A member of the RNA family "TPP riboswitch aptamer (THI element)" from Geopseudomonas guangdongensis, 107 nucleotides long.
The match comes from Rfam's covariance-model search (82 bits).
The base pairs follow the family's consensus structure, which is taken from published work.
Gene Ontology term of the family: thiamine pyrophosphate binding.
Rfam's curators write: Vitamin B(1) in its active form thiamin pyrophosphate (TPP) is an essential coenzyme that is synthesised by coupling of pyrimidine and thiazole moieties in bacteria.
RNA sequence: GUUUUCUUGUCGGGGUGCCUGGAGUCGCAGGCUGAGAUCGGACAGUUCCGAAUCCCGUUGAACCUGAUCGGGUUAGCACCCGCGUAGGGAACAAGAUGUCCUCGCCG
Numbered sequence: 001g002u003u004u005u006c007u008u009g010u011c012g013g014g015g016u017g018c019c020u021g022g023a024g025u026c027g028c029a030g031g032c033u034g035a036g037a038u039c040g041g042a043c044a045g046u047u048c049c050g051a052a053u054c055c056c057g058u059u060g061a062a063c064c065u066g067a068u069c070g071g072g073u074u075a076g077c078a079c080c081c082g083c084g085u086a087g088g089g090a091a092c093a094a095g096a097u098g099u100c101c102u103c104g105c106c107g
Stems, first nucleotide, its partner, number of pairs: 006095005011057004016051001017032005039050004063088004069082004